[Rfam]
RNA sequence: GUUGCUGCGUUGUCUAAUUCGCUUGGUGCAGGUCGGGAACUGACUUUGCCUGCUGUGUUUAUUUUCGUAAGAACUUUUAUAUGUAUACUAUGUGUUCUUAUACUACUUUGUAGUUUUUAAAUAUCUAAAUUAUUUUUAAAGAAAUUUAAAAAGAUUGUUCAAAUUCACUGUCAAAAUAAAUAAAAAAAAAAUUUUGACUGUCGAAAUAUAAUAUAAAUUGUGACAGAGGGAGUACGAAAUUUGUUCCCGCCUUGCAUCAACUGAAUCGGAGACCGCCGUGAAU
Number, nucleotide and partner (000 for none) at each position: 001g000002u000003u000004g000005c000006u000007g000008c000009g000010u000011u000012g000013u270014c269015u000016a000017a266018u265019u264020c263021g000022c000023u260024u259025g258026g257027u256028g255029c254030a253031g252032g251033u000034c249035g248036g247037g246038a245039a000040c243041u000042g000043a000044c000045u000046u000047u000048g000049c000050c000051u000052g000053c000054u000055g000056u000057g000058u000059u000060u000061a000062u000063u000064u000065u000066c000067g000068u000069a000070a000071g000072a000073a000074c000075u000076u000077u000078u000079a000080u000081a000082u000083g000084u000085a000086u000087a000088c000089u000090a000091u000092g000093u000094g000095u000096u000097c000098u000099u000100a000101u000102a000103c000104u000105a000106c000107u000108u000109u000110g000111u000112a000113g000114u000115u000116u000117u000118u000119a000120a000121a000122u000123a000124u000125c000126u000127a000128a000129a000130u000131u000132a000133u000134u000135u000136u000137u000138a000139a000140a000141g000142a000143a000144a000145u000146u000147u000148a000149a000150a000151a000152a000153g000154a000155u000156u000157g000158u000159u000160c000161a000162a000163a000164u000165u000166c000167a000168c000169u000170g000171u000172c000173a000174a000175a000176a000177u000178a000179a000180a000181u000182a000183a000184a000185a000186a000187a000188a000189a000190a000191a000192u000193u000194u000195u000196g000197a000198c000199u000200g000201u000202c000203g000204a000205a000206a000207u000208a000209u000210a000211a000212u000213a000214u000215a000216a000217a000218u000219u000220g000221u000222g000223a000224c000225a000226g000227a000228g000229g000230g000231a000232g000233u000234a000235c000236g000237a000238a000239a000240u000241u000242u000243g040244u000245u038246c037247c036248c035249g034250c000251c032252u031253u030254g029255c028256a027257u026258c025259a024260a023261c000262u000263g020264a019265a018266u017267c000268g000269g014270a013271g000272a000273c000274c000275g000276c000277c000278g000279u000280g000281a000282a000283u000